[Rfam]
RNA sequence: ACACGGGAAAGGAGGUGGUCCGAAGAAUGAGUUCUUUCAGGACGCGUGAGGUGGCUGCCCGCUAGCAGCUCCGCCGACGGCGUCGAGCCGCUGGCAAUCCAAGGGCAGUCACCCGGCCCGCAGGUGCUCCGGACAUGUCCGCCGGAGACGGUGCGAGGAGUCUCGACUCCACGCACCACGCCUGCGGGCCGUUCCCA
Numbered sequence: 001a002c003a004c005g006g007g008a009a010a011g012g013a014g015g016u017g018g019u020c021c022g023a024a025g026a027a028u029g030a031g032u033u034c035u036u037u038c039a040g041g042a043c044g045c046g047u048g049a050g051g052u053g054g055c056u057g058c059c060c061g062c063u064a065g066c067a068g069c070u071c072c073g074c075c076g077a078c079g080g081c082g083u084c085g086a087g088c089c090g091c092u093g094g095c096a097a098u099c100c101a102a103g104g105g106c107a108g109u110c111a112c113c114c115g116g117c118c119c120g121c122a123g124g125u126g127c128u129c130c131g132g133a134c135a136u137g138u139c140c141g142c143c144g145g146a147g148a149c150g151g152u153g154c155g156a157g158g159a160g161u162c163u164c165g166a167c168u169c170c171a172c173g174c175a176c177c178a179c180g181c182c183u184g185c186g187g188g189c190c191g192u193u194c195c196c197a
Stems, first nucleotide, its partner, number of pairs: 014059006061095006068088004075080001114191013128146005
Dot-bracket structure: .............((((((..................................)))))).((((((.((((...(....)....)))).))))))..................(((((((((((((.(((((.........)))))................................)))))))))))))......